Shown here is a 172-nucleotide sequence, a member of the family "Clostridiales-1 RNA". It is annotated as a small RNA.
RNA sequence: UGAUACCAGGAUCAAAAGUUCGGAAAUCUGACGCAAGCUUGCUUGCACAAAGAUUUAUGAACUUGGAAUCCGCCAAAACAUGAGUAAGUAGCCAUUUUUCGAAGAAAAAUGAGCGGAUUACGAAUGUUUUUGAGGAUUGCGGGAGUACAAAGUACGGAGCAAUCCGGUAUCA
Numbered sequence: 001u002g003a004u005a006c007c008a009g010g011a012u013c014a015a016a017a018g019u020u021c022g023g024a025a026a027u028c029u030g031a032c033g034c035a036a037g038c039u040u041g042c043u044u045g046c047a048c049a050a051a052g053a054u055u056u057a058u059g060a061a062c063u064u065g066g067a068a069u070c071c072g073c074c075a076a077a078a079c080a081u082g083a084g085u086a087a088g089u090a091g092c093c094a095u096u097u098u099u100c101g102a103a104g105a106a107a108a109a110u111g112a113g114c115g116g117a118u119u120a121c122g123a124a125u126g127u128u129u130u131u132g133a134g135g136a137u138u139g140c141g142g143g144a145g146u147a148c149a150a151a152g153u154a155c156g157g158a159g160c161a162a163u164c165c166g167g168u169a170u171c172a
Stems, first nucleotide, its partner, number of pairs: 001172007010070003017063006024056006033046005076129006084121004091114002093111007134165007145155004